[Rfam]
RNA sequence: GCCAAAUGAUGUAGAAAUGAUGACAUAGCCCAUCGUGCAAAGAUGACAUUUCAUCUAUCACCCAAUUCUGAUGGCU
Numbered sequence: 001g002c003c004a005a006a007u008g009a010u011g012u013a014g015a016a017a018u019g020a021u022g023a024c025a026u027a028g029c030c031c032a033u034c035g036u037g038c039a040a041a042g043a044u045g046a047c048a049u050u051u052c053a054u055c056u057a058u059c060a061c062c063c064a065a066u067u068c069u070g071a072u073g074g075c076u
Stems, first nucleotide, its partner, number of pairs: 001075004028038002031035001
Rfam assigns this 76-nucleotide RNA from Ophiophagus hannah to the family "Small nucleolar RNA SNORD83". It is annotated as a C/D-box small nucleolar RNA. Its family is annotated with nucleolus and RNA processing in the Gene Ontology. NCBI's taxonomy places the organism under Eukaryota, Metazoa, Euteleostomi, Bifurcata, Ophiophagus. For this family Rfam cites "Characterisation of the U83 and U84 small nucleolar RNAs: two novel 2'-O-ribose methylation guide RNAs that lack complementarities to ribosomal RNAs" (Jady and Kiss, Nucleic Acids Res, 2000).